[Rfam]
RNA sequence: CUGAAUAUACAGCCGAAUUUCAUGUUGAAAACGGGGGAACCAUAAAUGCUGUCAGGAUGAUAGGGGUCCAGGCGGUGUGGGGUGAAUUCCGGUCACCGGUGAGCUAUAGAGCCGUGUUGUGCCGGAUAGGGCGUCUGUUCGCGCCCGAAUCCGUCAGCUAACCUCGUAGGCUGUCCGAACAGGGCUC
Numbered sequence: 001c002u003g004a005a006u007a008u009a010c011a012g013c014c015g016a017a018u019u020u021c022a023u024g025u026u027g028a029a030a031a032c033g034g035g036g037g038a039a040c041c042a043u044a045a046a047u048g049c050u051g052u053c054a055g056g057a058u059g060a061u062a063g064g065g066g067u068c069c070a071g072g073c074g075g076u077g078u079g080g081g082g083u084g085a086a087u088u089c090c091g092g093u094c095a096c097c098g099g100u101g102a103g104c105u106a107u108a109g110a111g112c113c114g115u116g117u118u119g120u121g122c123c124g125g126a127u128a129g130g131g132c133g134u135c136u137g138u139u140c141g142c143g144c145c146c147g148a149a150u151c152c153g154u155c156a157g158c159u160a161a162c163c164u165c166g167u168a169g170g171c172u173g174u175c176c177g178a179a180c181a182g183g184g185c186u187c
Base pairs, nucleotide, nucleotide: 011172012171013170014169018030019029020028031167032166033165034164035163036162041079042078043077044076080152081151082150088126089125090124091123092122093121129146130145131144132143
A member of the RNA family "c-di-AMP riboswitch aptamer (ydaO/yuaA leader)" from Paenibacillus sambharensis, 187 nucleotides long. The match comes from Rfam's covariance-model search (84 bits). The organism belongs to Paenibacillus, within Bacteria.